[Rfam]
RNA sequence: UGCAUAGAUACGACUUUUGGAGUACUUCUAAAAAGUAUCUAUGCGCUAAUCUUAGUUACAAAGAUAAAAAAGCGUGUAGUAAGUUUUUACUAGACGCUUUUCUUUUUAG
Numbered sequence: 001u002g003c004a005u006a007g008a009u010a011c012g013a014c015u016u017u018u019g020g021a022g023u024a025c026u027u028c029u030a031a032a033a034a035g036u037a038u039c040u041a042u043g044c045g046c047u048a049a050u051c052u053u054a055g056u057u058a059c060a061a062a063g064a065u066a067a068a069a070a071a072g073c074g075u076g077u078a079g080u081a082a083g084u085u086u087u088u089a090c091u092a093g094a095c096g097c098u099u100u101u102c103u104u105u106u107u108a109g
Base pairs, nucleotide, nucleotide: 002044003043004042005041006040007039008038009037010036011035015033016032017031018030019029020028071098072097073096074095075094077092078091079090080089081088
Overview
Shown here is a 109-nucleotide RNA sequence from Streptococcus gallolyticus, a member of the family "trpB ncRNA motif". The literature on the family includes a 2024 paper in Nucleic Acids Res by Narunsky et al., "The discovery of novel noncoding RNAs in 50 bacterial genomes". Rfam describes the family as follows. trpB ncRNA motif was reported as a strong cis regulatory motif candidate, with potential to be a cis regulatory riboswitch type, it have been identified in Firmicutes and Fusobacteria. NCBI's taxonomy places the organism under Bacteria, Bacillati, Bacillota, Bacilli, Streptococcus. Rfam classes the family as a cis-regulatory element. Pairs were carried over by alignment from the consensus structure, which is taken from published work.